Shown here is a 94-nucleotide RNA, a member of the family "c-di-GMP-II-GAG riboswitch aptamer". Rfam's curators put it in the seed alignment. Its family is annotated with cyclic-di-GMP binding and regulation of gene expression in the Gene Ontology. On this family, see Weinberg et al., Proc Natl Acad Sci U S A 2017: "Bioinformatic analysis of riboswitch structures uncovers variant classes with altered ligand specificity".
RNA sequence: CAGCCAAAGGAAGACAGUGACGCUCCGGGAGGAACGCGGUCACCUUGUACACGUCCCCGAAGCAGAGUCAGUGGUGAGACCGGCCCAUGCGGUC
Numbered sequence: 001c002a003g004c005c006a007a008a009g010g011a012a013g014a015c016a017g018u019g020a021c022g023c024u025c026c027g028g029g030a031g032g033a034a035c036g037c038g039g040u041c042a043c044c045u046u047g048u049a050c051a052c053g054u055c056c057c058c059g060a061a062g063c064a065g066a067g068u069c070a071g072u073g074g075u076g077a078g079a080c081c082g083g084c085c086c087a088u089g090c091g092g093u094c
Stems, first nucleotide, its partner, number of pairs: 002093001004091001007088001009086002013069003022063003026059004038081002040077005